This 139-nucleotide RNA from Silurus meridionalis belongs to the Rfam family "Small nucleolar RNA SNORA13". ACA13 is a member of the H/ACA class of snoRNA that guide the sites of modification of uridines to pseudouridines. The family's consensus secondary structure was predicted with CMfinder. Rfam 15.1 lists 1,034 matches to the family in 605 species. The organism belongs to Silurus, within Eukaryota. The family is grouped with related families in Rfam's "SNORA13 clan". Gene Ontology terms of the family: RNA processing and nucleolus.

RNA sequence: UGCCUUUUUGUGUUGCCCAUUCUUUGCAUUUUCCAUUAAAGAAUGUGGUGUCAAUAAAGGCAUACAGUAAAGUCCUGGUCCGGCCUUUACCAGGUAACUCUAGUGUUACCUCAGGCGAAGCUCUGUACCAGGCACACAC
Numbered sequence: 001u002g003c004c005u006u007u008u009u010g011u012g013u014u015g016c017c018c019a020u021u022c023u024u025u026g027c028a029u030u031u032u033c034c035a036u037u038a039a040a041g042a043a044u045g046u047g048g049u050g051u052c053a054a055u056a057a058a059g060g061c062a063u064a065c066a067g068u069a070a071a072g073u074c075c076u077g078g079u080c081c082g083g084c085c086u087u088u089a090c091c092a093g094g095u096a097a098c099u100c101u102a103g104u105g106u107u108a109c110c111u112c113a114g115g116c117g118a119a120g121c122u123c124u125g126u127a128c129c130a131g132g133c134a135c136a137c138a139c
Base pairs, nucleotide, nucleotide: 002061003060004059005058006057007056011053012052014050015049016048017047018045019044020043021042022041023040024039025038074132075131076130077129080125082123083122088117090115091114093111096107097106